RNA sequence: AAAUGUUUGCCAACACUCUGGUGCCUGAUAUAACUUCGAACUUGAUUCGAAGUUUUCCCGUAUUUGGUUCCUAUUUCAGCGCAAACUAGAUAAAAAGCUAAUUACUCACCAUCAUAGUCACCUAAUGACUAUGAUAGGUCCAUUUCACGAGCUAACAU
Numbered sequence: 001a002a003a004u005g006u007u008u009g010c011c012a013a014c015a016c017u018c019u020g021g022u023g024c025c026u027g028a029u030a031u032a033a034c035u036u037c038g039a040a041c042u043u044g045a046u047u048c049g050a051a052g053u054u055u056u057c058c059c060g061u062a063u064u065u066g067g068u069u070c071c072u073a074u075u076u077c078a079g080c081g082c083a084a085a086c087u088a089g090a091u092a093a094a095a096a097g098c099u100a101a102u103u104a105c106u107c108a109c110c111a112u113c114a115u116a117g118u119c120a121c122c123u124a125a126u127g128a129c130u131a132u133g134a135u136a137g138g139u140c141c142a143u144u145u146c147a148c149g150a151g152c153u154a155a156c157a158u
Stems, first nucleotide, its partner, number of pairs: 007084003020071002023068002027064003032054006096153004109138002111135002114132006
A member of the RNA family "Small nucleolar RNA snR80" from Millerozyma farinosa, 158 nucleotides long. A reference for the family is Schattner et al. (2004), "Genome-wide searching for pseudouridylation guide snoRNAs: analysis of the Saccharomyces cerevisiae genome", Nucleic Acids Res. By type it is an H/ACA-box small nucleolar RNA. The organism belongs to Millerozyma farinosa, within Eukaryota.